[Rfam]
This 600-nucleotide part of an RNA from Pediculus humanus belongs to the Rfam family "Eukaryotic large subunit ribosomal RNA". The literature on the family includes a 2002 paper in BMC Bioinformatics by Cannone et al., "The comparative RNA web (CRW) site: an online database of comparative sequence and structure information for ribosomal, intron, and other RNAs". A search with the family's covariance model found it, with a score of 2654 bits.
RNA sequence: AAGUCGGCAAAAUCGAUCCGUAACUUCGGGAUAAGGAUUGGCUCUGAGGAUCGGGGCGCGACGGGCCCGGAAGGAAAGCGGACAGGUCGUCCGGGGGACUGUGCAAGGAACCGGUCGCUCGCUCGAUCGGCUCCGAGUUCGGUCCCCUUCGGACGACGUCGUUCGCGACGACUUCCGGUCGCUGCAGAGGACUUUGCAAAUUCGUCGCCGUCGUGUCCGGAACGGGACGUUCGCGCGUCUCGUUUCGCUCUCGGCGGCGGCGGCAGCCGUGCGAAGGCAAGUCGGCACAAGGCCGCGGCGCUGCGAUUAUUUCGCACGCGUCGCGGCUCGACCCGGCGUCAUCCUCGUCGUCCGCCGACAAACGAUCGACUCAGAACUGGCACGGACAAGGGGAAUCCGACUGUUUAAUUAAAACAAAGCAUUGCGACGGCCUCAAGCAGGUGUUGACGCAAUGUGAUUUCUGCCCAGUGAAUCGAAUGUGAAGACGAAGAAAUUCGAAAAAGCUCAUUUAAACGGCGGGAGUAACUAUGACUCUCUUAAGGUAGCCAAAUGCCUCGUCAUCUAAUUAGUGACGCGCAUGAAUGGAUUAACGAGAUUCCC
Numbered sequence: 001a002a003g004u005c006g007g008c009a010a011a012a013u014c015g016a017u018c019c020g021u022a023a024c025u026u027c028g029g030g031a032u033a034a035g036g037a038u039u040g041g042c043u044c045u046g047a048g049g050a051u052c053g054g055g056g057c058g059c060g061a062c063g064g065g066c067c068c069g070g071a072a073g074g075a076a077a078g079c080g081g082a083c084a085g086g087u088c089g090u091c092c093g094g095g096g097g098a099c100u101g102u103g104c105a106a107g108g109a110a111c112c113g114g115u116c117g118c119u120c121g122c123u124c125g126a127u128c129g130g131c132u133c134c135g136a137g138u139u140c141g142g143u144c145c146c147c148u149u150c151g152g153a154c155g156a157c158g159u160c161g162u163u164c165g166c167g168a169c170g171a172c173u174u175c176c177g178g179u180c181g182c183u184g185c186a187g188a189g190g191a192c193u194u195u196g197c198a199a200a201u202u203c204g205u206c207g208c209c210g211u212c213g214u215g216u217c218c219g220g221a222a223c224g225g226g227a228c229g230u231u232c233g234c235g236c237g238u239c240u241c242g243u244u245u246c247g248c249u250c251u252c253g254g255c256g257g258c259g260g261c262g263g264c265a266g267c268c269g270u271g272c273g274a275a276g277g278c279a280a281g282u283c284g285g286c287a288c289a290a291g292g293c294c295g296c297g298g299c300g301c302u303g304c305g306a307u308u309a310u311u312u313c314g315c316a317c318g319c320g321u322c323g324c325g326g327c328u329c330g331a332c333c334c335g336g337c338g339u340c341a342u343c344c345u346c347g348u349c350g351u352c353c354g355c356c357g358a359c360a361a362a363c364g365a366u367c368g369a370c371u372c373a374g375a376a377c378u379g380g381c382a383c384g385g386a387c388a389a390g391g392g393g394a395a396u397c398c399g400a401c402u403g404u405u406u407a408a409u410u411a412a413a414a415c416a417a418a419g420c421a422u423u424g425c426g427a428c429g430g431c432c433u434c435a436a437g438c439a440g441g442u443g444u445u446g447a448c449g450c451a452a453u454g455u456g457a458u459u460u461c462u463g464c465c466c467a468g469u470g471a472a473u474c475g476a477a478u479g480u481g482a483a484g485a486c487g488a489a490g491a492a493a494u495u496c497g498a499a500a501a502a503g504c505u506c507a508u509u510u511a512a513a514c515g516g517c518g519g520g521a522g523u524a525a526c527u528a529u530g531a532c533u534c535u536c537u538u539a540a541g542g543u544a545g546c547c548a549a550a551u552g553c554c555u556c557g558u559c560a561u562c563u564a565a566u567u568a569g570u571g572a573c574g575c576g577c578a579u580g581a582a583u584g585g586a587u588u589a590a591c592g593a594g595a596u597u598c599c600c
Stems, first nucleotide, its partner, number of pairs: 015039005024029001040378002043375006049367005055356004060352005065180001067178001069176004078166004084159001086157008094147008103138002107134003379383001391600007398592002402416003419455008430442004459586003463517003468514002470510004475506001479504002486497004518536006537541001557573005